[Rfam]
About this RNA: Rfam assigns this 275-nucleotide RNA sequence from Aliterella atlantica to the family "Group I catalytic intron". Taxonomically the source falls in Aliterella atlantica (Bacteria, Bacillati, Aliterellaceae, Aliterella). Gene Ontology term of the family: Group I intron splicing. From the family's description: Group I catalytic introns are large self-splicing ribozymes. They catalyse their own excision from mRNA, tRNA and rRNA precursors in a wide range of organisms.
RNA sequence: AUAACUGUUUGAUAACUGGGGCUGUAGCUCAGUUGGAUAGAGCGAGCGCCUCCUGAAAUAUCGGGCAUCAUAGAGGAAACUUUAUGUAUGAAUGCGAUCAAAGUCGGUGAACCCUAAAAAGCAAAAACUUUAUGGGAAUACCGAGCCAAGCCUAAAAUUGAUUUGUAGAUCGAACUACAGAAUUAUUUCAGGAAGGUGUAGAGACUAAACGGUUGCCACCUAAAGGUUAAAAACCUAUGGUGAAGAUAUAGUCCAGAGAGUGGGGAAACUCACAC
Numbered sequence: 001a002u003a004a005c006u007g008u009u010u011g012a013u014a015a016c017u018g019g020g021g022c023u024g025u026a027g028c029u030c031a032g033u034u035g036g037a038u039a040g041a042g043c044g045a046g047c048g049c050c051u052c053c054u055g056a057a058a059u060a061u062c063g064g065g066c067a068u069c070a071u072a073g074a075g076g077a078a079a080c081u082u083u084a085u086g087u088a089u090g091a092a093u094g095c096g097a098u099c100a101a102a103g104u105c106g107g108u109g110a111a112c113c114c115u116a117a118a119a120a121g122c123a124a125a126a127a128c129u130u131u132a133u134g135g136g137a138a139u140a141c142c143g144a145g146c147c148a149a150g151c152c153u154a155a156a157a158u159u160g161a162u163u164u165g166u167a168g169a170u171c172g173a174a175c176u177a178c179a180g181a182a183u184u185a186u187u188u189c190a191g192g193a194a195g196g197u198g199u200a201g202a203g204a205c206u207a208a209a210c211g212g213u214u215g216c217c218a219c220c221u222a223a224a225g226g227u228u229a230a231a232a233a234c235c236u237a238u239g240g241u242g243a244a245g246a247u248a249u250a251g252u253c254c255a256g257a258g259a260g261u262g263g264g265g266a267a268a269c270u271c272a273c274a275c
Stems, first nucleotide, its partner, number of pairs: 006067008072083003094216004099211001104144006113135002117131003145197002151191001161183003201254001203253005219240002223236001225234001227232001260273005